RNA sequence: ACUCAUACCUUGUAGGGGAAAUACCAUGUUGUAAAAUUGGUUUUCCUAGGCGGAAGAGGAUCAUCCAUUGCACUUUUGGUGUGUUGUUGACCCAUAUGAUUUCCCCAAAUGUGGGGAACUCAACUACAUAAUUUGCAUUAAUGGGGGCAUUAUGUUUGUGAUUUUUCUGG
Numbered sequence: 001a002c003u004c005a006u007a008c009c010u011u012g013u014a015g016g017g018g019a020a021a022u023a024c025c026a027u028g029u030u031g032u033a034a035a036a037u038u039g040g041u042u043u044u045c046c047u048a049g050g051c052g053g054a055a056g057a058g059g060a061u062c063a064u065c066c067a068u069u070g071c072a073c074u075u076u077u078g079g080u081g082u083g084u085u086g087u088u089g090a091c092c093c094a095u096a097u098g099a100u101u102u103c104c105c106c107a108a109a110u111g112u113g114g115g116g117a118a119c120u121c122a123a124c125u126a127c128a129u130a131a132u133u134u135g136c137a138u139u140a141a142u143g144g145g146g147g148c149a150u151u152a153u154g155u156u157u158g159u160g161a162u163u164u165u166u167c168u169g170g
Stems, first nucleotide, its partner, number of pairs: 012127004016047006023041004048095001053093001056091001058088002062083003065079002097122003100118003104114002144168004149164001153160002